[Rfam]
RNA sequence: UUCUUUCAUAGCACAUACUUUGACUAUCAUGUCAGUACUAAUCAGUUAGCACUAUUACAUUAGUGCUUUUAUGUACUUCGUGCAUUACUGCUAGUCCCCAUGAAUAAUAUAUA
Number, nucleotide and partner (000 for none) at each position: 001u000002u000003c000004u000005u104006u103007c102008a101009u100010a000011g098012c000013a000014c000015a000016u090017a089018c000019u000020u000021u034022g033023a032024c031025u029026a000027u000028c000029a025030u000031g024032u023033c022034a021035g066036u065037a000038c063039u062040a061041a060042u000043c000044a000045g000046u000047u000048a000049g000050c000051a000052c000053u000054a000055u000056u000057a000058c000059a000060u041061u040062a039063g038064u000065g036066c035067u000068u000069u000070u000071a085072u084073g083074u082075a081076c000077u000078u000079c000080g000081u075082g074083c073084a072085u071086u000087a000088c000089u017090g016091c000092u000093a000094g000095u000096c000097c000098c011099c000100a009101u008102g007103a006104a005105u000106a000107a000108u000109a000110u000111a000112u000113a000